[Rfam]
RNA sequence: UGCACCGACGGAGAUGGCAUUCCUCCGCUAACCGUCGCUAUCAGCGACUGAUGAUGCCUACACCUUC
Numbered sequence: 001u002g003c004a005c006c007g008a009c010g011g012a013g014a015u016g017g018c019a020u021u022c023c024u025c026c027g028c029u030a031a032c033c034g035u036c037g038c039u040a041u042c043a044g045c046g047a048c049u050g051a052u053g054a055u056g057c058c059u060a061c062a063c064c065u066u067c
Stems, first nucleotide, its partner, number of pairs: 010026004016058006034048004
RNA: Fluoride riboswitch aptamer (crcB RNA motif)
Organism: Pollutimonas bauzanensis